[Rfam]
RNA sequence: AUUUCCCGGAGUAUGGACUCCGGGAAGAUAUAAUAAUUUGAGUAGUAGGAAUAAACAAAUAUCUUUCAA
Numbered sequence: 001a002u003u004u005c006c007c008g009g010a011g012u013a014u015g016g017a018c019u020c021c022g023g024g025a026a027g028a029u030a031u032a033a034u035a036a037u038u039u040g041a042g043u044a045g046u047a048g049g050a051a052u053a054a055a056c057a058a059a060u061a062u063c064u065u066u067c068a069a
Base pairs, nucleotide, nucleotide: 003026004025005024006023007022008021009020010019011018053066054065055064